A member of the RNA family "FMN riboswitch aptamer (RFN element)" from Firmicutes bacterium AF12-30, 119 nucleotides long. The base pairs follow the family's consensus structure, which is taken from published work.
[Rfam]
RNA sequence: UAAUAUCUUCAGGGCAGGGUGCAAUUCCCUACCGGCGGUUACAGCCCGCGAGCUUUUGAUAAGCAUGACUUGGUGAGAUUCCAAGGCCGACAGUACAGUCUGGAUGGAAGAAGAUUUAA
Numbered sequence: 001u002a003a004u005a006u007c008u009u010c011a012g013g014g015c016a017g018g019g020u021g022c023a024a025u026u027c028c029c030u031a032c033c034g035g036c037g038g039u040u041a042c043a044g045c046c047c048g049c050g051a052g053c054u055u056u057u058g059a060u061a062a063g064c065a066u067g068a069c070u071u072g073g074u075g076a077g078a079u080u081c082c083a084a085g086g087c088c089g090a091c092a093g094u095a096c097a098g099u100c101u102g103g104a105u106g107g108a109a110g111a112a113g114a115u116u117u118a119a
Base pairs, nucleotide, nucleotide: 003117005115006114007113008112009111010110017029018028019027031099032098033089034088035049036048037047038046044087045086054063069085070084071083072082073081091102092101093100
Dot-bracket structure: ..(.((((((......(((.......))).[[((((((.....[[))))....(........).....(((((.......)))))]])).(((....]]))).......)))))).)..